[Rfam]
RNA sequence: GUCUUCCCAGGCAGCAAUGCCUGGGCCUCAUUGAAAC
Numbered sequence: 001g002u003c004u005u006c007c008c009a010g011g012c013a014g015c016a017a018u019g020c021c022u023g024g025g026c027c028u029c030a031u032u033g034a035a036a037c
Base pairs, nucleotide, nucleotide: 006025007024008023009022010021011020012019
Dot-bracket structure: .....(((((((......)))))))............
The record is a 37-nucleotide RNA sequence from Azospirillum thermophilum, which matches "CRISPR RNA direct repeat element" in Rfam.
The source organism's lineage runs through Bacteria, Alphaproteobacteria, Rhodospirillales, Azospirillaceae and Azospirillum.
Pairs were carried over by alignment from the consensus structure, which was predicted with WAR.